[Rfam]
RNA: Purine riboswitch aptamer
RNA sequence: UUAAAAACUUAAACCGAAACUCAUAUAUUUUUGAUAAUAUGGAUCAAAAGUUUCUACGAGACACCGUAAAUUUCUCGCUAUGGGUAAUCCAGCUAAAUAA
Numbered sequence: 001u002u003a004a005a006a007a008c009u010u011a012a013a014c015c016g017a018a019a020c021u022c023a024u025a026u027a028u029u030u031u032u033g034a035u036a037a038u039a040u041g042g043a044u045c046a047a048a049a050g051u052u053u054c055u056a057c058g059a060g061a062c063a064c065c066g067u068a069a070a071u072u073u074c075u076c077g078c079u080a081u082g083g084g085u086a087a088u089c090c091a092g093c094u095a096a097a098u099a100a
Stems, first nucleotide, its partner, number of pairs: 019085007029049007058076004063071001